Rfam assigns this 130-nucleotide RNA from Salix koriyanagi to the family "MIR390 microRNA precursor family". Lineage of the source: Eukaryota > Streptophyta > Tracheophyta > Malpighiales > Salix. Rfam 15.1 lists 649 matches to the family in 206 species. Gene Ontology terms of the family: miRNA-mediated post-transcriptional gene silencing and RISC complex.
[Rfam]
RNA sequence: CGGGAGAAUCUGUUAAGCUCAGGAGGGAUAGCGCCAUGAACCGAUGAUAAGCUGAUUUUUGAGUUAUUCUUAACACAAUCAAUCUAGUCAUCAGUGGCGCUAUCCAUCCUGAGUUUUACGGGUUCUUCUU
Number, nucleotide and partner (000 for none) at each position: 001c000002g000003g000004g000005a000006g000007a000008a000009u000010c121011u000012g000013u000014u000015a000016a115017g114018c113019u112020c111021a110022g109023g108024a107025g000026g105027g104028a103029u102030a101031g100032c099033g098034c097035c096036a095037u094038g000039a000040a000041c000042c000043g000044a000045u000046g000047a000048u000049a000050a000051g000052c000053u000054g000055a000056u000057u000058u000059u000060u000061g000062a000063g000064u000065u000066a000067u000068u000069c000070u000071u000072a000073a000074c000075a000076c000077a000078a000079u000080c000081a000082a000083u000084c000085u000086a000087g000088u000089c000090a000091u000092c000093a000094g037095u036096g035097g034098c033099g032100c031101u030102a029103u028104c027105c026106a000107u024108c023109c022110u021111g020112a019113g018114u017115u016116u000117u000118a000119c000120g000121g010122g000123u000124u000125c000126u000127u000128c000129u000130u000